[Rfam]
RNA sequence: AAUUCUGUUCGUGUAAGACAAAUAGACGCCGAUCUAUUCUAUACCCGAAUGUAAGUACCAAUACUCAAUGGGA
Numbered sequence: 001a002a003u004u005c006u007g008u009u010c011g012u013g014u015a016a017g018a019c020a021a022a023u024a025g026a027c028g029c030c031g032a033u034c035u036a037u038u039c040u041a042u043a044c045c046c047g048a049a050u051g052u053a054a055g056u057a058c059c060a061a062u063a064c065u066c067a068a069u070g071g072g073a
Stems, first nucleotide, its partner, number of pairs: 004022001006020004044072003055064003

Notes
Rfam assigns this 73-nucleotide sequence from Musa balbisiana to the family "Plastid-clpP 5UTR RNA". By type it is a cis-regulatory element. NCBI's taxonomy places the organism under Eukaryota, Streptophyta, Streptophytina, Euphyllophyta, Musa. Rfam describes the family as follows. Plastid clpP is a non-coding RNA (ncRNA) recognised in plastids. It was found in the prime untranslated region (5UTR) of a protease complex subunit (clpP) in plastids, suggesting a posible cis-regulatory function.